[Rfam]
RNA sequence: UGGGCAGUAUCCCUGGGAACUGCACCGACUUGUGAUAACAAUUAAAAAGGUUUCUGCCUAGAUCCGUUUUUACGGACCGGGACAGAGGG
Numbered sequence: 001u002g003g004g005c006a007g008u009a010u011c012c013c014u015g016g017g018a019a020c021u022g023c024a025c026c027g028a029c030u031u032g033u034g035a036u037a038a039c040a041a042u043u044a045a046a047a048a049g050g051u052u053u054c055u056g057c058c059u060a061g062a063u064c065c066g067u068u069u070u071u072a073c074g075g076a077c078c079g080g081g082a083c084a085g086a087g088g089g
Stems, first nucleotide, its partner, number of pairs: 001027003004023005010018002054085003057081003061077001063076003